[Rfam]
RNA sequence: UCUGGCAGUGAUGACACUCUUGCCCUCACUGACACACUGAGGUGUGGUGAUGAGAGCCAGCUCUGUGCUGAGCCCUGAGCCAGA
Numbered sequence: 001u002c003u004g005g006c007a008g009u010g011a012u013g014a015c016a017c018u019c020u021u022g023c024c025c026u027c028a029c030u031g032a033c034a035c036a037c038u039g040a041g042g043u044g045u046g047g048u049g050a051u052g053a054g055a056g057c058c059a060g061c062u063c064u065g066u067g068c069u070g071a072g073c074c075c076u077g078a079g080c081c082a083g084a
Base pairs, nucleotide, nucleotide: 001084002083003082004081005080006079
Record summary: A member of the RNA family "Small nucleolar RNA SNORD103/SNORD85" from Ornithorhynchus anatinus, 84 nucleotides long. The organism belongs to Ornithorhynchus, within Eukaryota. Rfam classes the family as a C/D-box small nucleolar RNA. It scores 56 bits against the family's covariance model. The pairing is the family consensus, mapped onto this sequence. On this family, see Huttenhofer et al., EMBO J 2001: "RNomics: an experimental approach that identifies 201 candidates for novel, small, non-messenger RNAs in mouse".